RNA sequence: GCGGAUGGCCGGAUGACCGCGGGGGCCGCAAGGUCCACGAGGAAAGUCCGGACUCCGGAAAGCACGGUGCCGGGUAACGCCCGGCCGGGGAAACCCGAGGGAAAGCGCCACAGAGAACAGACUACCCGUCGGACCGGAGGUUCGCCAAAGGAGCAUCCGGCGGGAAAAGGUGAAACGGUGGGGUAAGAGCCCACCGCGGGACGGGCAACCGGACCGGCACGGCAAGCCCCACCGGGAGCAAUGCCAAAUAGGGACCCCGCGCCGGCAACGGCAGGCGCGCUUCCGCCCAGGGGUCCGGGUUGGCAGCUAGAGGCGCGUCGGCAACGGCGGGCCAAGAGGAAUGGUCAUCCAGGGGGAGCGAUCCUCCGGACAGAAUCCGGCUUACAGGCCAUCCGCGCAU
Dot-bracket structure: ((((((((((((((((((.((.(((((....))))).))....[[[.[[[[[((((...[[[[.((((((((((.....)))))(((((....)))).)((...(((((............((.((((((((........................))))))))...)).......((((((.......))))))((((..(((....)))..))).)..)))..)))))))))))))...((((......((((((.................(.((]]]]..)).)..)))))).....)))).......((.(((((....))))).))..........)))))))..........................]]]]]]]].).))))))))))....